Shown here is a 61-nucleotide RNA from Solanum tuberosum, a member of the family "Plastid-psbN 5UTR RNA". The base pairs follow the family's consensus structure, which was predicted with LocARNA. On this family, see Zhelyazkova et al., Plant Cell 2012: "The primary transcriptome of barley chloroplasts: numerous noncoding RNAs and the dominating role of the plastid-encoded RNA polymerase". By type it is a cis-regulatory element.
RNA sequence: UGCGACACCGAUCAAAUGAGUAGUUCCCCACCCAGGAGCUACUUUAUUAUAUUCCGAAUUC
Numbered sequence: 001u002g003c004g005a006c007a008c009c010g011a012u013c014a015a016a017u018g019a020g021u022a023g024u025u026c027c028c029c030a031c032c033c034a035g036g037a038g039c040u041a042c043u044u045u046a047u048u049a050u051a052u053u054c055c056g057a058a059u060u061c
Stems, first nucleotide, its partner, number of pairs: 018044010

Rfam describes the family as follows. Plastid psbN is a non-coding RNA (ncRNA) recognised in plastids. It was reported as a conserved 11 stem-loop in the prime untranslated region (5UTR) of psbN genes. It has been reported that the motif is retained in a subset of mature transcripts in barley, which can suggests a possible role in transcript alternative 5 prime processing. The organism belongs to Solanum, within Eukaryota.